TPP riboswitch aptamer (THI element): a 95-nucleotide sequence from Tenacibaculum sp. SG-28. A search with the family's covariance model found it, with a score of 71 bits. The organism belongs to Tenacibaculum, within Bacteria. Rfam describes the family as follows. Vitamin B(1) in its active form thiamin pyrophosphate (TPP) is an essential coenzyme that is synthesised by coupling of pyrimidine and thiazole moieties in bacteria. The base pairs follow the family's consensus structure, which is taken from published work.
[Rfam]
RNA sequence: UGUAAACUUUAGGAGUAACUGAUCAUUCAGUUUGAGAAAUAUCCUUGGAACCUGAUAUGGUUAAUACCAGCGUAGGGAAAAGUUGGCUUAUGUCU
Numbered sequence: 001u002g003u004a005a006a007c008u009u010u011a012g013g014a015g016u017a018a019c020u021g022a023u024c025a026u027u028c029a030g031u032u033u034g035a036g037a038a039a040u041a042u043c044c045u046u047g048g049a050a051c052c053u054g055a056u057a058u059g060g061u062u063a064a065u066a067c068c069a070g071c072g073u074a075g076g077g078a079a080a081a082g083u084u085g086g087c088u089u090a091u092g093u094c095u
Base pairs, nucleotide, nucleotide: 006083007082008081009080010079011045012044013043014042016039017032018031019030020029021028051076052075053074054073058069059068060067